RNA sequence: UCGCUAAUAUCCGCGCCUUCAUUGGGGAGUAGCCGCCCUUCACCGUGGUGAAGGGGCUUGCGUCAACACACUUGGCCGUCCGGCCAUGGCGCAAGCAGUUCCUGGACUUGGCAAGACCUUUGAUCACGAUGCCUCUGGUAUGGCCGGGGAGGCGCGUGGUCAUCGGUUGUACCGGCCAGGGAUCAU
Numbered sequence: 001u002c003g004c005u006a007a008u009a010u011c012c013g014c015g016c017c018u019u020c021a022u023u024g025g026g027g028a029g030u031a032g033c034c035g036c037c038c039u040u041c042a043c044c045g046u047g048g049u050g051a052a053g054g055g056g057c058u059u060g061c062g063u064c065a066a067c068a069c070a071c072u073u074g075g076c077c078g079u080c081c082g083g084c085c086a087u088g089g090c091g092c093a094a095g096c097a098g099u100u101c102c103u104g105g106a107c108u109u110g111g112c113a114a115g116a117c118c119u120u121u122g123a124u125c126a127c128g129a130u131g132c133c134u135c136u137g138g139u140a141u142g143g144c145c146g147g148g149g150a151g152g153c154g155c156g157u158g159g160u161c162a163u164c165g166g167u168u169g170u171a172c173c174g175g176c177c178a179g180g181g182a183u184c185a186u
Stems, first nucleotide, its partner, number of pairs: 001052001056096010073086005098183007
Rfam assigns this 186-nucleotide RNA from Azoarcus olearius to the family "Manganese Mn2+ riboswitch aptamer (yybP-ykoY)". It is one of the family's seed sequences. Gene Ontology term of the family: manganese ion binding.